[Rfam]
RNA: Group II catalytic intron D1-D4-3
Organism: Porphyromonas sp. HMSC077F02
RNA sequence: CAAGGGGCGACCCUUGGGAGAGAAGAAGCAAUAGCGAAUUCGUGGCCUGACGAACAGAAACCUAAUACCAAGGCGUAUCAAGCGGACAAGCUGGCCCAAGGCAGUGAAGAUCCAAAAGGCACCCGUAACCUUGAUGCGUAAAUUAGGCAGGUAAAC
Numbered sequence: 001c002a003a004g005g006g007g008c009g010a011c012c013c014u015u016g017g018g019a020g021a022g023a024a025g026a027a028g029c030a031a032u033a034g035c036g037a038a039u040u041c042g043u044g045g046c047c048u049g050a051c052g053a054a055c056a057g058a059a060a061c062c063u064a065a066u067a068c069c070a071a072g073g074c075g076u077a078u079c080a081a082g083c084g085g086a087c088a089a090g091c092u093g094g095c096c097c098a099a100g101g102c103a104g105u106g107a108a109g110a111u112c113c114a115a116a117a118g119g120c121a122c123c124c125g126u127a128a129c130c131u132u133g134a135u136g137c138g139u140a141a142a143u144u145a146g147g148c149a150g151g152u153a154a155a156c
Stems, first nucleotide, its partner, number of pairs: 001016006042156002045152005061147006073139003077135006084113003087109001090105004